[Rfam]
RNA sequence: GGGGCUGAUUAGGAUUCGACGGGAUAUAUAAAGCUCAAGGUGCAUGCCGAGGUGAGGCUGGCCUCGUAAAAAGCCUCAAACUUAUAGUUGCAAACGACGACAACUACGCUUUAGCGGCUUAAUCCCCGCUAACCAUCCACCCGCGCUUUGUCUGUAAGACGGGAUUCGGAUGGUCAUCUUUACAGACUCGCGUGGCGGCUUCGUCCGGAGCCAAGACGUUAAAACCAAUCGGACUCGCGUUUGAAAAGCCUGCCCCUCGGCGCUUCAAACGUUAACUAAAAGAGACGGCUAAGCAUGUAGGACCGAGGGUGGCGAUAUUGCGGACGCGGGUUCAAAUCCCGCCAGCUCCACCA
Numbered sequence: 001g002g003g004g005c006u007g008a009u010u011a012g013g014a015u016u017c018g019a020c021g022g023g024a025u026a027u028a029u030a031a032a033g034c035u036c037a038a039g040g041u042g043c044a045u046g047c048c049g050a051g052g053u054g055a056g057g058c059u060g061g062c063c064u065c066g067u068a069a070a071a072a073g074c075c076u077c078a079a080a081c082u083u084a085u086a087g088u089u090g091c092a093a094a095c096g097a098c099g100a101c102a103a104c105u106a107c108g109c110u111u112u113a114g115c116g117g118c119u120u121a122a123u124c125c126c127c128g129c130u131a132a133c134c135a136u137c138c139a140c141c142c143g144c145g146c147u148u149u150g151u152c153u154g155u156a157a158g159a160c161g162g163g164a165u166u167c168g169g170a171u172g173g174u175c176a177u178c179u180u181u182a183c184a185g186a187c188u189c190g191c192g193u194g195g196c197g198g199c200u201u202c203g204u205c206c207g208g209a210g211c212c213a214a215g216a217c218g219u220u221a222a223a224a225c226c227a228a229u230c231g232g233a234c235u236c237g238c239g240u241u242u243g244a245a246a247a248g249c250c251u252g253c254c255c256c257u258c259g260g261c262g263c264u265u266c267a268a269a270c271g272u273u274a275a276c277u278a279a280a281a282g283a284g285a286c287g288g289c290u291a292a293g294c295a296u297g298u299a300g301g302a303c304c305g306a307g308g309g310u311g312g313c314g315a316u317a318u319u320g321c322g323g324a325c326g327c328g329g330g331u332u333c334a335a336a337u338c339c340c341g342c343c344a345g346c347u348c349c350a351c352c353a
Stems, first nucleotide, its partner, number of pairs: 001349007020322002023319005033310004039304003043297005048066005053078007111132007133173006140163004146158003150187006194219001200213001203235001206232001208230001237272009248261003252289003256284003326342005

transfer-messenger RNA: a 353-nucleotide sequence from Aliidiomarina haloalkalitolerans. A reference for the family is Williams and Bartel (1996), "Phylogenetic analysis of tmRNA secondary structure", RNA. It scores 246 bits against the family's covariance model. Rfam links the family to the GO term RNA catabolic process.